[Rfam]
RNA: M-box riboswitch aptamer (ykoK leader)
RNA sequence: AUGAGACUUCGUUAGGUGAGGCUCCUGUAUGGAGAUACGCUGCUGCCCAAAAAUGUCCAAAGACGCCAAUGGGUCAACAGAAAUCAUCGACAUAAGGUGAUUUUUAAUGCAGCUGGAUUUUUCCUAUGCCAUACAGUGCUAAAGCUCUACGAUUGAAGGAGCAA
Numbered sequence: 001a002u003g004a005g006a007c008u009u010c011g012u013u014a015g016g017u018g019a020g021g022c023u024c025c026u027g028u029a030u031g032g033a034g035a036u037a038c039g040c041u042g043c044u045g046c047c048c049a050a051a052a053a054u055g056u057c058c059a060a061a062g063a064c065g066c067c068a069a070u071g072g073g074u075c076a077a078c079a080g081a082a083a084u085c086a087u088c089g090a091c092a093u094a095a096g097g098u099g100a101u102u103u104u105u106a107a108u109g110c111a112g113c114u115g116g117a118u119u120u121u122u123c124c125u126a127u128g129c130c131a132u133a134c135a136g137u138g139c140u141a142a143a144g145c146u147c148u149a150c151g152a153u154u155g156a157a158g159g160a161g162c163a164a
Stems, first nucleotide, its partner, number of pairs: 007158004011150002013095001015146003020140003025136008039113005045074005054065004080104004086098003115124003